Rfam assigns this 94-nucleotide sequence from Chitinophaga cymbidii to the family "TPP riboswitch aptamer (THI element)".
[Rfam]
RNA sequence: CUUUUCACCUCGGGGUGCCUUACUAUCAGGCUGAGAUCAUACCCGUUGAACCUGGACCAGGUAAUGCUGGUUAGGAAAGGUAAGUGAUGUUCUC
Numbered sequence: 001c002u003u004u005u006c007a008c009c010u011c012g013g014g015g016u017g018c019c020u021u022a023c024u025a026u027c028a029g030g031c032u033g034a035g036a037u038c039a040u041a042c043c044c045g046u047u048g049a050a051c052c053u054g055g056a057c058c059a060g061g062u063a064a065u066g067c068u069g070g071u072u073a074g075g076a077a078a079g080g081u082a083a084g085u086g087a088u089g090u091u092c093u094c
Stems, first nucleotide, its partner, number of pairs: 007081004011045004016039001017031004051075004057070004
Lineage of the source: Bacteria > Pseudomonadati > Bacteroidota > Chitinophagales > Chitinophaga.